[Rfam]
RNA sequence: GAGCUUCGCGAAGGUCCGUCUCCUCCCAGGACCCGAGCGGAUAGAAGUCUGCGGACUCCUCCUCCCACCGCAGACUUUCCAAACGACACCCGCCGGUCCUCCCCCGGCGGGUGUUGUCG
Numbered sequence: 001g002a003g004c005u006u007c008g009c010g011a012a013g014g015u016c017c018g019u020c021u022c023c024u025c026c027c028a029g030g031a032c033c034c035g036a037g038c039g040g041a042u043a044g045a046a047g048u049c050u051g052c053g054g055a056c057u058c059c060u061c062c063u064c065c066c067a068c069c070g071c072a073g074a075c076u077u078u079c080c081a082a083a084c085g086a087c088a089c090c091c092g093c094c095g096g097u098c099c100u101c102c103c104c105c106g107g108c109g110g111g112u113g114u115u116g117u118c119g
Stems, first nucleotide, its partner, number of pairs: 007039003013033005045077010086114011

This 119-nucleotide RNA from Aureimonas sp. Leaf460 belongs to the Rfam family "Alphaproteobacterial ar14". The family's RNA type in Rfam is small RNA. From the family's description: Smr14C2 was renamed NfeR1 (Nodule Formation Efficiency RNA) highly expressed in salt stress and during the symbiotic interaction on legume roots. It scores 85 bits against the family's covariance model.